[Rfam]
RNA sequence: ACAACACAGCUUUUCAAGUUCUCAAACCCCACAUGACAUUUAUAUAUAAUGUCAUGUGGGGUUUGAGAACUUGAAAAGCUGUGUUGU
Numbered sequence: 001a002c003a004a005c006a007c008a009g010c011u012u013u014u015c016a017a018g019u020u021c022u023c024a025a026a027c028c029c030c031a032c033a034u035g036a037c038a039u040u041u042a043u044a045u046a047u048a049a050u051g052u053c054a055u056g057u058g059g060g061g062u063u064u065g066a067g068a069a070c071u072u073g074a075a076a077a078g079c080u081g082u083g084u085u086g087u
Stems, first nucleotide, its partner, number of pairs: 002086022025063012
Rfam assigns this 87-nucleotide RNA sequence from Orycteropus afer to the family "mir-135 microRNA precursor family". Its family is annotated with RISC complex and gene silencing by miRNA in the Gene Ontology. Taxonomically the source falls in Orycteropus afer (Eukaryota, Sarcopterygii, Tetrapoda, Theria). The match comes from Rfam's covariance-model search (61 bits). The family's consensus secondary structure was predicted with PFOLD. Rfam 15.1 lists 2,125 matches to the family in 647 species.